TPP riboswitch aptamer (THI element): a 93-nucleotide RNA from Flavobacterium sediminis. Gene Ontology term of the family: thiamine pyrophosphate binding. Vitamin B(1) in its active form thiamin pyrophosphate (TPP) is an essential coenzyme that is synthesised by coupling of pyrimidine and thiazole moieties in bacteria. Taxonomically the source falls in Flavobacterium (Bacteria, Pseudomonadati, Bacteroidota, Flavobacteriia).
RNA sequence: UCUUCGCUUUAGGGGUAUUCUGAAAAGAAUUGAGAGAGUCCCUUUGAACCUGAUACGGCUUACACCGACGUAGGGAAAAGCAAAAAAAGACUU
Numbered sequence: 001u002c003u004u005c006g007c008u009u010u011a012g013g014g015g016u017a018u019u020c021u022g023a024a025a026a027g028a029a030u031u032g033a034g035a036g037a038g039u040c041c042c043u044u045u046g047a048a049c050c051u052g053a054u055a056c057g058g059c060u061u062a063c064a065c066c067g068a069c070g071u072a073g074g075g076a077a078a079a080g081c082a083a084a085a086a087a088a089g090a091c092u093u
Stems, first nucleotide, its partner, number of pairs: 006081005011043004016037001017030005049074004056067003